[Rfam]
RNA: MIR2118 microRNA precursor family
RNA sequence: GCAAGGAAGAGGAAGAAUGAGAGGUCCUGAGAGCAGUGGGAAUGGGAACAUGGAGGAAAGCCAAAUUUGUUUGUAUCUCAUCCACCAAUGGAGGGUUUAAUCUGAUUUGGUCUUUCCCGGUGCCUUCCAUUCCUAUUACUCUCAAGCACUCCUUCCUCAUCCUUUUUUCC
Numbered sequence: 001g002c003a004a005g006g007a008a009g010a011g012g013a014a015g016a017a018u019g020a021g022a023g024g025u026c027c028u029g030a031g032a033g034c035a036g037u038g039g040g041a042a043u044g045g046g047a048a049c050a051u052g053g054a055g056g057a058a059a060g061c062c063a064a065a066u067u068u069g070u071u072u073g074u075a076u077c078u079c080a081u082c083c084a085c086c087a088a089u090g091g092a093g094g095g096u097u098u099a100a101u102c103u104g105a106u107u108u109g110g111u112c113u114u115u116c117c118c119g120g121u122g123c124c125u126u127c128c129a130u131u132c133c134u135a136u137u138a139c140u141c142u143c144a145a146g147c148a149c150u151c152c153u154u155c156c157u158c159a160u161c162c163u164u165u166u167u168u169c170c
Base pairs, nucleotide, nucleotide: 009161010160012158013157015155016154017153021151022150023149026146028144029143030142031141032140033139035137037135038134039133040132041131042130043129044128045127046126047125049122050121051120053118055117056116057115058114059113060112